[Rfam]
RNA sequence: GGCAGCAGUUCGGUUCUAUAUAAGGGCGGUCGGCUCAUCCUCCAUCUCUUGAAGAGAAAGGGGGUGAGCAUGUGACAGUAUCAGAGGCCUUGCAACUCAUGGUGUCUUUCGGCAUUCUCGUAGUGGCCAUUCUGUCAUCAAACGACAAAAAAAAGUAAGAUCGCCCUUGAUUCCCACACCAAGACGAUCUUACUUUUUAAUUGGGAUCUAAAAAUAGAGCCGACUCCUUUUUAUGGAGCCUCUCUGUUGCUUCCGGGAGAUGUUGCCGCAUCUUCCG
Numbered sequence: 001g002g003c004a005g006c007a008g009u010u011c012g013g014u015u016c017u018a019u020a021u022a023a024g025g026g027c028g029g030u031c032g033g034c035u036c037a038u039c040c041u042c043c044a045u046c047u048c049u050u051g052a053a054g055a056g057a058a059a060g061g062g063g064g065u066g067a068g069c070a071u072g073u074g075a076c077a078g079u080a081u082c083a084g085a086g087g088c089c090u091u092g093c094a095a096c097u098c099a100u101g102g103u104g105u106c107u108u109u110c111g112g113c114a115u116u117c118u119c120g121u122a123g124u125g126g127c128c129a130u131u132c133u134g135u136c137a138u139c140a141a142a143c144g145a146c147a148a149a150a151a152a153a154a155g156u157a158a159g160a161u162c163g164c165c166c167u168u169g170a171u172u173c174c175c176a177c178a179c180c181a182a183g184a185c186g187a188u189c190u191u192a193c194u195u196u197u198u199a200a201u202u203g204g205g206a207u208c209u210a211a212a213a214a215u216a217g218a219g220c221c222g223a224c225u226c227c228u229u230u231u232u233a234u235g236g237a238g239c240c241u242c243u244c245u246g247u248u249g250c251u252u253c254c255g256g257g258a259g260a261u262g263u264u265g266c267c268g269c270a271u272c273u274u275c276c277g
Stems, first nucleotide, its partner, number of pairs: 002245001004243002008239001010223006019170001021169006028162004035067003039064005074136005080130001088101001111128003179204003224238004254277010
Rfam assigns this 277-nucleotide RNA sequence from Bacillus licheniformis to the family "BsrG". NCBI's taxonomy places the organism under Bacteria, Bacillati, Bacilli, Caryophanales, Bacillus licheniformis. The family's consensus secondary structure was predicted with WAR. For this family Rfam cites "Novel small RNA-encoding genes in the intergenic regions of Bacillus subtilis" (Saito et al., Gene, 2008). Rfam describes the family as follows. bsrE, bsrG and bsrH pair through intermolecular interactions with antisense sRNAs. They form type I toxin/antitoxin system that includes an mRNA encoding for a short, toxic peptide (bsrE, bsrG and bsrH) and an antitoxin that is comprised of an antisense RNA. bsrG encodes a 39-amino-acid toxin, and the 180 nucleotide antisense sRNA called SR4 acts as the antitoxin (they overlap by 123 nucleotides). It scores 56 bits against the family's covariance model.